[Rfam]
RNA: Small nucleolar RNA SNORA33
RNA sequence: AAGCCAGCCCAUGAGUCUGCUCACCUGAAUGUGUUUCUGUAGGAAUUUAGAGAAAGCUGGUAAUAGAAAAGCCAUGUUAUGAGCCUUAAAGACACUGAAGUCAUUAAGGUCCCGGAAAAUAACUAUAAGA
Numbered sequence: 001a002a003g004c005c006a007g008c009c010c011a012u013g014a015g016u017c018u019g020c021u022c023a024c025c026u027g028a029a030u031g032u033g034u035u036u037c038u039g040u041a042g043g044a045a046u047u048u049a050g051a052g053a054a055a056g057c058u059g060g061u062a063a064u065a066g067a068a069a070a071g072c073c074a075u076g077u078u079a080u081g082a083g084c085c086u087u088a089a090a091g092a093c094a095c096u097g098a099a100g101u102c103a104u105u106a107a108g109g110u111c112c113c114g115g116a117a118a119a120u121a122a123c124u125a126u127a128a129g130a
Stems, first nucleotide, its partner, number of pairs: 003061005016043005071123001074120001083110007091102003